A member of the RNA family "mir-5928 microRNA precursor family" from Haemonchus placei, 75 nucleotides long. The match comes from Rfam's covariance-model search (76 bits). The source organism's lineage runs through Eukaryota, Opisthokonta, Bilateria, Protostomia and Haemonchus.
[Rfam]
RNA sequence: GGCACAAACUUGAGGUAGAGUAGAUUAGUAUGGCCAACUGAUCCUAUUAAUCUACUCUACUUCAAAUUUGGGCCC
Numbered sequence: 001g002g003c004a005c006a007a008a009c010u011u012g013a014g015g016u017a018g019a020g021u022a023g024a025u026u027a028g029u030a031u032g033g034c035c036a037a038c039u040g041a042u043c044c045u046a047u048u049a050a051u052c053u054a055c056u057c058u059a060c061u062u063c064a065a066a067u068u069u070g071g072g073c074c075c
Stems, first nucleotide, its partner, number of pairs: 001074003005070004011064013025050006032043002035040001